[Rfam]
RNA sequence: GCUGGAAGCUGCAAUAUUCUGUGUGUAGUUUGAGUGUCUGCCCACUGUAGCAAGCUUCCGAUAGCAAUGUUUUGGAGAUCUCUGUCUGGCUUUGCUUAGGGCGUGCUUAGCCGGAUCGUUCCUCUCCAUACAAG
Numbered sequence: 001g002c003u004g005g006a007a008g009c010u011g012c013a014a015u016a017u018u019c020u021g022u023g024u025g026u027a028g029u030u031u032g033a034g035u036g037u038c039u040g041c042c043c044a045c046u047g048u049a050g051c052a053a054g055c056u057u058c059c060g061a062u063a064g065c066a067a068u069g070u071u072u073u074g075g076a077g078a079u080c081u082c083u084g085u086c087u088g089g090c091u092u093u094g095c096u097u098a099g100g101g102c103g104u105g106c107u108u109a110g111c112c113g114g115a116u117c118g119u120u121c122c123u124c125u126c127c128a129u130a131c132a133a134g
Stems, first nucleotide, its partner, number of pairs: 004059003010052003021045003025041004074127005082118001084116003088112004094106001